Shown here is an 81-nucleotide RNA sequence from Ensifer sp. M14, a member of the family "chrB-a RNA". Rfam classes the family as a cis-regulatory element. The source organism's lineage runs through Bacteria, Pseudomonadati, Pseudomonadota, Alphaproteobacteria and Ensifer.

[Rfam]
RNA sequence: GACAUGGGGUCGCGAUCACCCCACGAGGCGACAGCCGAAGUAUCGCGUCCAUUCAACCGCUCAGACGGAGGACGCGUCAUG
Numbered sequence: 001g002a003c004a005u006g007g008g009g010u011c012g013c014g015a016u017c018a019c020c021c022c023a024c025g026a027g028g029c030g031a032c033a034g035c036c037g038a039a040g041u042a043u044c045g046c047g048u049c050c051a052u053u054c055a056a057c058c059g060c061u062c063a064g065a066c067g068g069a070g071g072a073c074g075c076g077u078c079a080u081g
Base pairs, nucleotide, nucleotide: 005023006022007021008020009019010018045075046074047073048072049071050070